[Rfam]
RNA: MIR6217 microRNA precursor family
RNA sequence: AUUUUAUAGCCACUUUGAGUUACGAUAAUUACUAUAUUAAUUUACGAGAUUAUAGUAACUCUUUACUAAGUGGUUUACUAUAACAUUAUAGUAAAUUAUCCCCAUGUGUUAUAGUAAUCCAACUAUCGUAAAUAUGUAUUGACAUUGUCGUAAAUUAGUAUAUAAAAUUAUCAUAAAUGAAGGAGGCUACAUAAU
Numbered sequence: 001a002u003u004u005u006a007u008a009g010c011c012a013c014u015u016u017g018a019g020u021u022a023c024g025a026u027a028a029u030u031a032c033u034a035u036a037u038u039a040a041u042u043u044a045c046g047a048g049a050u051u052a053u054a055g056u057a058a059c060u061c062u063u064u065a066c067u068a069a070g071u072g073g074u075u076u077a078c079u080a081u082a083a084c085a086u087u088a089u090a091g092u093a094a095a096u097u098a099u100c101c102c103c104a105u106g107u108g109u110u111a112u113a114g115u116a117a118u119c120c121a122a123c124u125a126u127c128g129u130a131a132a133u134a135u136g137u138a139u140u141g142a143c144a145u146u147g148u149c150g151u152a153a154a155u156u157a158g159u160a161u162a163u164a165a166a167a168u169u170a171u172c173a174u175a176a177a178u179g180a181a182g183g184a185g186g187c188u189a190c191a192u193a194a195u
Base pairs, nucleotide, nucleotide: 001195002194003193005191007189008188009187010186011185013183014182015181016180020176021175022174024172025171026170027169028168029167030166033162034161035160036159037158038157039156040155041154042153043152044151045150048149049148050147052145053144057139062132063131064130065129066128070126071125072124073123074122075121076116077115078114079113080112081111082110083109084108085107086106091100